Shown here is a 237-nucleotide RNA sequence from Streptomyces sp. BR123, a member of the family "Streptomyces sRNA 4677". By type it is a small RNA. About the family: Located in the intergenic region between anti-sigma factor SCO4677 gene and a putative regulatory protein gene SCO4676. scr4677 expression requires the SCO4677 activity and scr4677 sRNA itself seem to affect the levels of the SCO4676-associated transcripts. For this family Rfam cites "Complex intra-operonic dynamics mediated by a small RNA in Streptomyces coelicolor" (Hindra et al., PLoS One, 2014). The organism belongs to Streptomyces, within Bacteria.

RNA sequence: CUCCCCGGUAAGGCUCGACGCUUAGGGAUAAACAACCGGGGGAAAUGACCUUUCCCAACCUCCCCCCUCCCCCUCUCACCCGGUCGGGUGAAUUACGCCAACCUGGCUGGCCCAAUUGCCGAUCCGCAGUGCAGAGUCGGCGUCGGACGAAGGACCCCCACAAACGCAAUCGGCCCUCGCAUGGGACUGCCAUCCCGCCGCGAGGGCCUGACCACACCGGAAGACCAGAACUUCCUC
Number, nucleotide and partner (000 for none) at each position: 001c000002u000003c000004c000005c000006c000007g000008g215009u214010a000011a000012g000013g000014c000015u000016c000017g073018a000019c000020g000021c000022u000023u000024a000025g000026g000027g000028a000029u000030a000031a000032a000033c000034a000035a000036c000037c000038g000039g000040g000041g000042g000043a000044a000045a000046u000047g000048a000049c000050c000051u000052u000053u000054c000055c000056c000057a000058a000059c000060c000061u000062c000063c000064c000065c000066c000067c000068u000069c000070c000071c000072c000073c017074u000075c000076u091077c090078a089079c088080c087081c086082g000083g000084u000085c000086g081087g080088g079089u078090g077091a076092a000093u000094u000095a000096c000097g000098c000099c000100a000101a000102c000103c000104u000105g000106g141107c140108u139109g138110g137111c000112c000113c000114a000115a000116u000117u000118g000119c000120c000121g000122a000123u000124c000125c000126g000127c000128a000129g000130u000131g000132c000133a000134g000135a000136g000137u110138c109139g108140g107141c106142g000143u000144c000145g000146g000147a000148c000149g000150a000151a000152g000153g000154a000155c000156c000157c000158c000159c000160a000161c000162a000163a000164a000165c000166g000167c000168a000169a000170u000171c000172g208173g207174c206175c205176c204177u000178c202179g201180c200181a000182u000183g196184g195185g194186a193187c000188u000189g000190c000191c000192a000193u186194c185195c184196c183197g000198c000199c000200g180201c179202g178203a000204g176205g175206g174207c173208c172209u000210g000211a000212c000213c000214a009215c008216a000217c000218c000219g235220g234221a233222a232223g231224a000225c000226c000227a000228g000229a000230a000231c223232u222233u221234c220235c219236u000237c000